A member of the RNA family "MIR530 microRNA precursor family" from Gossypium mustelinum, 156 nucleotides long. The organism belongs to Gossypium, within Eukaryota. Pairs were carried over by alignment from the consensus structure, which was predicted with WAR. Rfam 15.1 lists 119 matches to the family in 78 species.

RNA sequence: GCUAAGAUGUAGCUUUUGUCUGCAUUUGCACCUGCACCUUAUUGUUUGUUUCAGCUAUGUCAGAAAAACAAAACACUGUUAAAUAUGUUUUGUGUGGUGUGGUUGGAGACCAAACAAAGAGGUGCAGAUGCAGUUGCAGAUGAAUGCCAUUUUAGC
Dot-bracket structure: (((((((((..((.((((((((((.(((((.((((((((...(.(((.(..((....))..).))).)...................................................)))))))).))))).)))))))))).)))))))))))